Rfam assigns this 130-nucleotide RNA sequence from Zhenpiania hominis to the family "Ribosomal protein L20 leader". The match comes from Rfam's covariance-model search (63 bits). NCBI's taxonomy places the organism under Bacteria, Bacillati, Bacillota, Anaerovoracaceae, Zhenpiania. About the family: This family is a putative r-protein leader autoregulatory structure found in B. subtilis and other low-GC Gram-positive bacteria. It is located in the 5' untranslated regions of mRNAs encoding initiation factor 3 followed by ribosomal proteins L35 and L20 (infC-rpmI-rplT). A Rho-independent transcription terminator structure that is probably involved in regulation is included at the 3' end. By type it is a cis-regulatory leader. Pairs were carried over by alignment from the consensus structure, which was predicted with CMfinder.

RNA sequence: GUAGUAAAGAAGAAGUUAUCCGCUUCUCACCUCGUGGUAAAGGCGCUGCUGGGGUUCAAUAGAGCGUAUCACACAUAUGUAUGUGUAUUUUAGAGCGGAUAACUGAGUUUAUCCGCUUUUUUAUUUAUGG
Numbered sequence: 001g002u003a004g005u006a007a008a009g010a011a012g013a014a015g016u017u018a019u020c021c022g023c024u025u026c027u028c029a030c031c032u033c034g035u036g037g038u039a040a041a042g043g044c045g046c047u048g049c050u051g052g053g054g055u056u057c058a059a060u061a062g063a064g065c066g067u068a069u070c071a072c073a074c075a076u077a078u079g080u081a082u083g084u085g086u087a088u089u090u091u092a093g094a095g096c097g098g099a100u101a102a103c104u105g106a107g108u109u110u111a112u113c114c115g116c117u118u119u120u121u122u123a124u125u126u127a128u129g130g
Stems, first nucleotide, its partner, number of pairs: 011027006029055003034049005094117009